[Rfam]
RNA sequence: UUGAAUUGCGGCGAUGAAGUUCGCCCUGAACCGCCCCGGGCCAGGGGAUGAUGACUUCUACUUCGAA
Numbered sequence: 001u002u003g004a005a006u007u008g009c010g011g012c013g014a015u016g017a018a019g020u021u022c023g024c025c026c027u028g029a030a031c032c033g034c035c036c037c038g039g040g041c042c043a044g045g046g047g048a049u050g051a052u053g054a055c056u057u058c059u060a061c062u063u064c065g066a067a
Stems, first nucleotide, its partner, number of pairs: 010025004016058006034047003

Rfam assigns this 67-nucleotide RNA sequence from Syntrophobacter fumaroxidans to the family "Fluoride riboswitch aptamer (crcB RNA motif)". The family's consensus secondary structure is taken from published work. Taxonomically the source falls in Syntrophobacter fumaroxidans (Bacteria, Thermodesulfobacteriota, Syntrophobacterales, Syntrophobacter).